[Rfam]
This 87-nucleotide RNA sequence from Thalassococcus profundi belongs to the Rfam family "Glycine riboswitch aptamer". Lineage of the source: Bacteria > Pseudomonadota > Alphaproteobacteria > Roseobacteraceae > Thalassococcus. Its family is annotated with glycine biosynthetic process in the Gene Ontology. The family is grouped with related families in Rfam's "Glycine riboswitch clan". The pairing is the family consensus, mapped onto this sequence.

RNA sequence: GCCAACGCGAUGGGAGAACCGGCUUUGCCGGUGCCGAAGGAGCAACCGCCCCGGAAACUCUCAGGCCCAAGGGACCGUAGCGGCACA
Numbered sequence: 001g002c003c004a005a006c007g008c009g010a011u012g013g014g015a016g017a018a019c020c021g022g023c024u025u026u027g028c029c030g031g032u033g034c035c036g037a038a039g040g041a042g043c044a045a046c047c048g049c050c051c052c053g054g055a056a057a058c059u060c061u062c063a064g065g066c067c068c069a070a071g072g073g074a075c076c077g078u079a080g081c082g083g084c085a086c087a
Stems, first nucleotide, its partner, number of pairs: 006082003010078004019031004033066003036062002040060003046054002